[Rfam]
RNA sequence: CAGGCUGCUCCGGGGUGCACGGGCCUGCAUAGGCCCGGCGCUGAGAUGGUUGAAGAACCAAACCCGUGAACUUGAUCUGGCUAGUACCAGCGAAAGAAGAGCGCAGCCCUCCAGG
Dot-bracket structure: .....(((((((((.(((.(.................).))......((((....)))))..))))....(((...((((......))))...)))..)))))............
Numbered sequence: 001c002a003g004g005c006u007g008c009u010c011c012g013g014g015g016u017g018c019a020c021g022g023g024c025c026u027g028c029a030u031a032g033g034c035c036c037g038g039c040g041c042u043g044a045g046a047u048g049g050u051u052g053a054a055g056a057a058c059c060a061a062a063c064c065c066g067u068g069a070a071c072u073u074g075a076u077c078u079g080g081c082u083a084g085u086a087c088c089a090g091c092g093a094a095a096g097a098a099g100a101g102c103g104c105a106g107c108c109c110u111c112c113a114g115g
Stems, first nucleotide, its partner, number of pairs: 006103005011066004016060001017041002020038001048059004071096003077090004
The family of this 115-nucleotide RNA sequence from Hydrogenophaga crassostreae is "TPP riboswitch aptamer (THI element)".
Rfam links the family to the GO term thiamine pyrophosphate binding.
NCBI's taxonomy places the organism under Bacteria, Pseudomonadati, Pseudomonadota, Betaproteobacteria, Hydrogenophaga.
The base pairs follow the family's consensus structure, which is taken from published work.